[Rfam]
RNA sequence: GAUGAUCUUAUGAUGAACUAUUUCGGAUGUAAACACAGACCUGUUCCGAACAGCGCAAAAACCGUGUGGAGAUUUCCGUUGCCUUCCUUCUGAUCAGAUCAU
Numbered sequence: 001g002a003u004g005a006u007c008u009u010a011u012g013a014u015g016a017a018c019u020a021u022u023u024c025g026g027a028u029g030u031a032a033a034c035a036c037a038g039a040c041c042u043g044u045u046c047c048g049a050a051c052a053g054c055g056c057a058a059a060a061a062c063c064g065u066g067u068g069g070a071g072a073u074u075u076c077c078g079u080u081g082c083c084u085u086c087c088u089u090c091u092g093a094u095c096a097g098a099u100c101a102u
Base pairs, nucleotide, nucleotide: 003101004100005099024078025077026076027075

Shown here is a 102-nucleotide sequence from Aspergillus flavus, a member of the family "Small nucleolar RNA Z13/snr52". Gene Ontology terms of the family: nucleolus and RNA processing. Taxonomically the source falls in Aspergillus flavus (Eukaryota, Fungi, Dikarya, leotiomyceta). It is annotated as a C/D-box small nucleolar RNA.